[Rfam]
The record is a 79-nucleotide RNA from Flavobacterium sp. HMWF030, which matches "Flavo-1 RNA" in Rfam. The organism belongs to Flavobacterium, within Bacteria. The family's RNA type in Rfam is small RNA.
RNA sequence: GGAUAGCCCCGAUUGCGCAGAAAUCCUUUUGUUUUUUCCUUUAAAAAAACAAAAGAUUGGAGCAAAAGCGGGAAACCAU
Numbered sequence: 001g002g003a004u005a006g007c008c009c010c011g012a013u014u015g016c017g018c019a020g021a022a023a024u025c026c027u028u029u030u031g032u033u034u035u036u037u038c039c040u041u042u043a044a045a046a047a048a049a050c051a052a053a054a055g056a057u058u059g060g061a062g063c064a065a066a067a068g069c070g071g072g073a074a075a076c077c078a079u
Stems, first nucleotide, its partner, number of pairs: 009071003013067002017063002022058004028053010